Group II catalytic intron D1-D4-3: a 221-nucleotide RNA from Desulfolithobacter dissulfuricans. About the family: Group II introns are found in rRNA, tRNA and mRNA of organelles in fungi, plants and protists, and also in mRNA in bacteria. Lineage of the source: Bacteria > Thermodesulfobacteriota > Desulfobulbia > Desulfobulbales > Desulfolithobacter. The pairing is the family consensus, mapped onto this sequence.
[Rfam]
RNA sequence: GAUCUCGCGAGGGCUCGUCUGAAGGAGCCGGAGCGGAGCGGAGACCAUGAGCCGAAGGCGAAAGCGACUGUAGGGAGCGGUAACCCGGAGUACAACGCUAUGAGCCGAUGAACAGAAAUGGCAUACAAGGCCCGGUUUCCGGGUAAGUCAGCACAACAUGACGAAGCCCUGGGUUUGGGAGAUAGGGUAAAUGCCGCGGUUGUGUAGUGAAAGAUCACGUC
Numbered sequence: 001g002a003u004c005u006c007g008c009g010a011g012g013g014c015u016c017g018u019c020u021g022a023a024g025g026a027g028c029c030g031g032a033g034c035g036g037a038g039c040g041g042a043g044a045c046c047a048u049g050a051g052c053c054g055a056a057g058g059c060g061a062a063a064g065c066g067a068c069u070g071u072a073g074g075g076a077g078c079g080g081u082a083a084c085c086c087g088g089a090g091u092a093c094a095a096c097g098c099u100a101u102g103a104g105c106c107g108a109u110g111a112a113c114a115g116a117a118a119u120g121g122c123a124u125a126c127a128a129g130g131c132c133c134g135g136u137u138u139c140c141g142g143g144u145a146a147g148u149c150a151g152c153a154c155a156a157c158a159u160g161a162c163g164a165a166g167c168c169c170u171g172g173g174u175u176u177g178g179g180a181g182a183u184a185g186g187g188u189a190a191a192u193g194c195c196g197c198g199g200u201u202g203u204g205u206a207g208u209g210a211a212a213g214a215u216c217a218c219g220u221c
Base pairs, nucleotide, nucleotide: 001016002015004013005012006011086219087218093213097208098207099206100205101204102203103201104200105199106198107197119196120195121194122193123192124191130188131187132186135183136182137181138180139179140178141169142168143167144166147162148161149160150159